RNA sequence: AGUGCUUAAUGUGAACAUUAAGCACCACAUUGGUGCAAUAGAACGCAAGCCACCCUUUUAACGCUCCGUGAAAGCGAUCACAAAGAGACUCUGCAAUACUUGUUUGC
Numbered sequence: 001a002g003u004g005c006u007u008a009a010u011g012u013g014a015a016c017a018u019u020a021a022g023c024a025c026c027a028c029a030u031u032g033g034u035g036c037a038a039u040a041g042a043a044c045g046c047a048a049g050c051c052a053c054c055c056u057u058u059u060a061a062c063g064c065u066c067c068g069u070g071a072a073a074g075c076g077a078u079c080a081c082a083a084a085g086a087g088a089c090u091c092u093g094c095a096a097u098a099c100u101u102g103u104u105u106g107c
Stems, first nucleotide, its partner, number of pairs: 002025010026102002030098001034095004041089001044085001049079001056074004061069003
Annotation:
ES222 sRNA: a 107-nucleotide sequence from Salmonella enterica. A reference for the family is Rau et al. (2015), "Differential expression of small RNAs under chemical stress and fed-batch fermentation in E. coli", BMC Genomics. The source organism's lineage runs through Bacteria, Enterobacterales, Salmonella, Salmonella enterica and Salmonella enterica subsp. arizonae. From the family's description: Differentially expressed under several chemical stress and fermentation conditions. It scores 66 bits against the family's covariance model. Gene Ontology term of the family: fermentation.